[Rfam]
RNA: Xanthine riboswitch aptamer (NMT1 RNA)
RNA sequence: CGCAAGAGUAGAAGCGUUCAACCGGCCCACAGACAGACAAGUCAUGGCGCAGGUGGGAAAUUGCUCUUGUU
Numbered sequence: 001c002g003c004a005a006g007a008g009u010a011g012a013a014g015c016g017u018u019c020a021a022c023c024g025g026c027c028c029a030c031a032g033a034c035a036g037a038c039a040a041g042u043c044a045u046g047g048c049g050c051a052g053g054u055g056g057g058a059a060a061u062u063g064c065u066c067u068u069g070u071u
Base pairs, nucleotide, nucleotide: 005067006066007065008064009063010062015056018058019057021054022053023052025050026049